[Rfam]
RNA sequence: CAAGCAGGCUGCCUUAUCGCUGGUGGUUUAUCCAUCAGAGGAAAGUCCGGACACCCUAUUGCAGCAUAGCGGGUAACGCCCGUCCGUUGAGAAACGAGGACAAGUGCAACAGAAAGCAGGUACAGGUAAUGCUGUAGUGAAACCAGGUAAACUCUAUGCGGUGCAACGCCAUGUAAACUGACGUUUGAGGGCGGCAAGUUCGAGUCAGAGGGUAGGCGGUUCGAGCCUUGGAGUAAUCCAAGGCCUAGAUAAAUGAUAAGGGCGUUUUUAACGUUACAGAAUCCGGCUUAUGGCCUGCUUUUUUU
Numbered sequence: 001c002a003a004g005c006a007g008g009c010u011g012c013c014u015u016a017u018c019g020c021u022g023g024u025g026g027u028u029u030a031u032c033c034a035u036c037a038g039a040g041g042a043a044a045g046u047c048c049g050g051a052c053a054c055c056c057u058a059u060u061g062c063a064g065c066a067u068a069g070c071g072g073g074u075a076a077c078g079c080c081c082g083u084c085c086g087u088u089g090a091g092a093a094a095c096g097a098g099g100a101c102a103a104g105u106g107c108a109a110c111a112g113a114a115a116g117c118a119g120g121u122a123c124a125g126g127u128a129a130u131g132c133u134g135u136a137g138u139g140a141a142a143c144c145a146g147g148u149a150a151a152c153u154c155u156a157u158g159c160g161g162u163g164c165a166a167c168g169c170c171a172u173g174u175a176a177a178c179u180g181a182c183g184u185u186u187g188a189g190g191g192c193g194g195c196a197a198g199u200u201c202g203a204g205u206c207a208g209a210g211g212g213u214a215g216g217c218g219g220u221u222c223g224a225g226c227c228u229u230g231g232a233g234u235a236a237u238c239c240a241a242g243g244c245c246u247a248g249a250u251a252a253a254u255g256a257u258a259a260g261g262g263c264g265u266u267u268u269u270a271a272c273g274u275u276a277c278a279g280a281a282u283c284c285g286g287c288u289u290a291u292g293g294c295c296u297g298c299u300u301u302u303u304u305u
Base pairs, nucleotide, nucleotide: 002300003299004298005297006296007295008294009293010292011291012261013260014259015258016257017256018255020038021037022036023035024034025033026032043289044288045287047286048285049284050283051282052163053162054161055160059197060196061195062194064159065158066157067156068155069083070082071081072080073079084098085096086095087094088093099154100153104152105151106148107147121136122135123134124133125132167218168217169216170215178208179207180206181205182204189201190200191199192198225244226243227242228241229240230239231238232237
A member of the RNA family "Bacterial RNase P class A" from Flavobacteria bacterium MS024-3C, 305 nucleotides long. It scores 209 bits against the family's covariance model. Pairs were carried over by alignment from the consensus structure, which is taken from published work.